[Rfam]
RNA: Purine riboswitch aptamer
Organism: Gracilibacillus ureilyticus
RNA sequence: UAAUUAUUAUUUACCAUCCGUCGUAUAAUGUUGGGAAUAUGGCCCAAGAGUCUCUACCGGAGCACCAUUAAAUGCUCUGACUACGAGGAGGAGAAGGUUAUUA
Numbered sequence: 001u002a003a004u005u006a007u008u009a010u011u012u013a014c015c016a017u018c019c020g021u022c023g024u025a026u027a028a029u030g031u032u033g034g035g036a037a038u039a040u041g042g043c044c045c046a047a048g049a050g051u052c053u054c055u056a057c058c059g060g061a062g063c064a065c066c067a068u069u070a071a072a073u074g075c076u077c078u079g080a081c082u083a084c085g086a087g088g089a090g091g092a093g094a095a096g097g098u099u100a101u102u103a
Base pairs, nucleotide, nucleotide: 019088021086022085023084024083025082029049031047032046033045034044035043058079059078060077061076062075063074064073
Dot-bracket structure: ..................(.(((((...(.(((((.......))))).)........(((((((........)))))))..))))).)...............